[Rfam]
RNA sequence: UGGGAGGCUGACACACAAAUUGGGCUGAAGUGCCGCUCUAAUUGUCAUUGUACCUCCCUAGAGUAAAACUGCCUUUUGAUGACCGGGAUAAAUUGAGUGAAAUUGUAACGGACAGAUACGGGGCAGACAGUU
Numbered sequence: 001u002g003g004g005a006g007g008c009u010g011a012c013a014c015a016c017a018a019a020u021u022g023g024g025c026u027g028a029a030g031u032g033c034c035g036c037u038c039u040a041a042u043u044g045u046c047a048u049u050g051u052a053c054c055u056c057c058c059u060a061g062a063g064u065a066a067a068a069c070u071g072c073c074u075u076u077u078g079a080u081g082a083c084c085g086g087g088a089u090a091a092a093u094u095g096a097g098u099g100a101a102a103u104u105g106u107a108a109c110g111g112a113c114a115g116a117u118a119c120g121g122g123g124c125a126g127a128c129a130g131u132u
Base pairs, nucleotide, nucleotide: 002058003057004056005055006054007053015045016044017043018042022038023037024036025035069126070125071124072123073122074121075120083111084110085109088106089105090104091103
Annotation
Rfam assigns this 132-nucleotide RNA from Carlito syrichta to the family "Small Cajal body specific RNA 8". It is annotated as a small Cajal body RNA. A reference for the family is Darzacq et al. (2002), "Cajal body-specific small nuclear RNAs: a novel class of 2'-O-methylation and pseudouridylation guide RNAs", EMBO J. Its family is annotated with RNA processing, nucleolus and Cajal body in the Gene Ontology. NCBI's taxonomy places the organism under Eukaryota, Bilateria, Sarcopterygii, Eutheria, Carlito. scaRNAs are a specific class of small nuclear RNAs which localise to the Cajal bodies and guide the modification of RNA polymerase II transcribed spliceosomal RNAs U1, U2, U4, U5 and U12. The family has 22 seed sequences and 955 matches in Rfam 15.1.